This 75-nucleotide sequence from Ziziphus jujuba belongs to the Rfam family "Plastid-ycf2 5UTR RNA". For this family Rfam cites "Retrograde signaling in plants: A critical review focusing on the GUN pathway and beyond" (Richter et al., Plant Commun, 2023). It scores 87 bits against the family's covariance model. Rfam's curators write: Plastid ycf2 is a non-coding RNA (ncRNA) recognised in plastids. It was found in the prime untranslated region (5UTR) of ycf2 genes, it presents a tRNA-like motif which suggests it can be involved in mRNA maturation, particularly involved in defining the precise 5' end of the transcript.

RNA sequence: GUGCAUCUAGUAGGAAUUGAACCUACGAAUUCACCAAUUAUGAGUUAAUCGCUUUAACCAUUCAGCCAUGGGUGC
Numbered sequence: 001g002u003g004c005a006u007c008u009a010g011u012a013g014g015a016a017u018u019g020a021a022c023c024u025a026c027g028a029a030u031u032c033a034c035c036a037a038u039u040a041u042g043a044g045u046u047a048a049u050c051g052c053u054u055u056a057a058c059c060a061u062u063c064a065g066c067c068a069u070g071g072g073u074g075c
Base pairs, nucleotide, nucleotide: 003075004074005073006072007071008070010026011025012024013023014022040069041068042067044066045065046064048062051059